[Rfam]
RNA sequence: GAAUUUUUGAUUAACGCCCACUUAGUGGGCCACGUGGAAG
Numbered sequence: 001g002a003a004u005u006u007u008u009g010a011u012u013a014a015c016g017c018c019c020a021c022u023u024a025g026u027g028g029g030c031c032a033c034g035u036g037g038a039a040g
Stems, first nucleotide, its partner, number of pairs: 016030006
RNA: nuoG RNA
Organism: Rahnella aquatilis